drum RNA: a 111-nucleotide RNA. Rfam's curators put it in the seed alignment. By type it is a small RNA. Rfam's curators write: Firmicutes, Bacteroidetes (1 example), Proteobacteria (2 examples), Spirochaetes (2 examples). Pairs were carried over by alignment from the consensus structure, which is taken from published work.
Nucleotides: 111
Base pairs, nucleotide, nucleotide: 001047003045004044011040012039013038014037015036016035017034020030021029024079025078026077027076062106063105064104083094084093085092
Number, partner (000 for none) and nucleotide at each position: 001047g002000u003045g004044c005000u006000g007000u008000g009000a010000u011040g012039u013038a014037a015036a016035u017034c018000a019000a020030u021029g022000a023000u024079u025078c026077g027076g028000g029021c030020a031000g032000a033000g034017g035016g036015u037014u038013u039012a040011c041000g042000g043000a044004g045003c046000u047001u048000u049000a050000a051000c052000a053000g054000u055000g056000g057000g058000u059000u060000c061000g062106c063105g064104a065000a066000a067000u068000u069000c070000c071000g072000c073000a074000a075000c076027u077026c078025g079024a080000a081000u082000a083094g084093g085092u086000g087000u088000a089000a090000a091000a092085a093084c094083c095000g096000a097000a098000a099000g100000a101000a102000a103000a104064u105063c106062g107000c108000a109000a110000a111000a